Notes: This 69-nucleotide RNA sequence from Populus alba belongs to the Rfam family "Plastid-clpP 5UTR RNA". Rfam classes the family as a cis-regulatory element.
[Rfam]
RNA sequence: AAUUCUGUUUGUAGAAACAAAGAAAAGUAGAUUUAUUUCAUACCAAAUAAGUACCAAUACACAAUGGGA
Numbered sequence: 001a002a003u004u005c006u007g008u009u010u011g012u013a014g015a016a017a018c019a020a021a022g023a024a025a026a027g028u029a030g031a032u033u034u035a036u037u038u039c040a041u042a043c044c045a046a047a048u049a050a051g052u053a054c055c056a057a058u059a060c061a062c063a064a065u066g067g068g069a
Base pairs, nucleotide, nucleotide: 003022004021006019007018008017009016010015043068044067051060052059053058
Dot-bracket structure: ..((.(((((....))))).))....................((......(((....)))......)).
A reference for the family is Richter et al. (2023), "Retrograde signaling in plants: A critical review focusing on the GUN pathway and beyond", Plant Commun. Lineage of the source: Eukaryota > Streptophytina > Tracheophyta > Mesangiospermae > Populus. Pairs were carried over by alignment from the consensus structure, which was predicted with LocARNA.